The family of this 76-nucleotide RNA from Eudromia elegans is "Small nucleolar RNA SNORD19". Rfam 15.1 lists 1,431 matches to the family in 609 species. For this family Rfam cites "RNomics: an experimental approach that identifies 201 candidates for novel, small, non-messenger RNAs in mouse" (Huttenhofer et al., EMBO J, 2001). Lineage of the source: Eukaryota > Teleostomi > Dipnotetrapodomorpha > Coelurosauria > Eudromia. The family is grouped with related families in Rfam's "SNORD19 clan".

RNA sequence: GAGCUAUGAAGAUGAUUUUAAAGGAAUCUGAGGUUCCAUUGAAGACAUAAGAUCCAACUCUGAGCUCAUUUUCCCU
Numbered sequence: 001g002a003g004c005u006a007u008g009a010a011g012a013u014g015a016u017u018u019u020a021a022a023g024g025a026a027u028c029u030g031a032g033g034u035u036c037c038a039u040u041g042a043a044g045a046c047a048u049a050a051g052a053u054c055c056a057a058c059u060c061u062g063a064g065c066u067c068a069u070u071u072u073c074c075c076u
Stems, first nucleotide, its partner, number of pairs: 001067004